[Rfam]
RNA sequence: ACGCUAAAAAGGCAAACUUAUUGAAAAAUAGGGGCGCAAAGUCUCAGGUCUAAGGUAGGGAUUAAUGCUAUGACGGCUGGACUGCUGAA
Numbered sequence: 001a002c003g004c005u006a007a008a009a010a011g012g013c014a015a016a017c018u019u020a021u022u023g024a025a026a027a028a029u030a031g032g033g034g035c036g037c038a039a040a041g042u043c044u045c046a047g048g049u050c051u052a053a054g055g056u057a058g059g060g061a062u063u064a065a066u067g068c069u070a071u072g073a074c075g076g077c078u079g080g081a082c083u084g085c086u087g088a089a
Stems, first nucleotide, its partner, number of pairs: 012037002017032006040083004045079003048074003055068003